RNA: RT-16 RNA
RNA sequence: UCUUGGUAUUAUUUAACUUGAUUUGUGAUAGUUAGAUAUCUCAGGGCUACACGCCUGUUUAUCAUGGCCAUUUAAUGGUUAUAAAAUACAGCUGUGACACUUAGUAAAUAUUGAACAGAUGAAACAGCAUUGCAAUUAAGGAUAAGCAGGCUAUAUAGC
Numbered sequence: 001u002c003u004u005g006g007u008a009u010u011a012u013u014u015a016a017c018u019u020g021a022u023u024u025g026u027g028a029u030a031g032u033u034a035g036a037u038a039u040c041u042c043a044g045g046g047c048u049a050c051a052c053g054c055c056u057g058u059u060u061a062u063c064a065u066g067g068c069c070a071u072u073u074a075a076u077g078g079u080u081a082u083a084a085a086a087u088a089c090a091g092c093u094g095u096g097a098c099a100c101u102u103a104g105u106a107a108a109u110a111u112u113g114a115a116c117a118g119a120u121g122a123a124a125c126a127g128c129a130u131u132g133c134a135a136u137u138a139a140g141g142a143u144a145a146g147c148a149g150g151c152u153a154u155a156u157a158g159c
Stems, first nucleotide, its partner, number of pairs: 001046006010038009053151010091128005098121002100118002107112001